[Rfam]
RNA: U7 small nuclear RNA
Nucleotides: 060
Stems, first nucleotide, its partner, number of pairs: 032057011
Number, partner (000 for none) and nucleotide at each position: 001000u002000a003000c004000a005000g006000a007000c008000a009000g010000c011000u012000c013000u014000u015000u016000u017000a018000a019000a020000a021000u022000u023000u024000g025000u026000c027000u028000a029000g030000c031000a032057g033056g034055u035054u036053u037052u038051c039050u040049g041048g042047u043000u044000u045000u046000c047042a048041c049040u050039g051038g052037a053036a054035g055034a056033c057032u058000c059000c060000c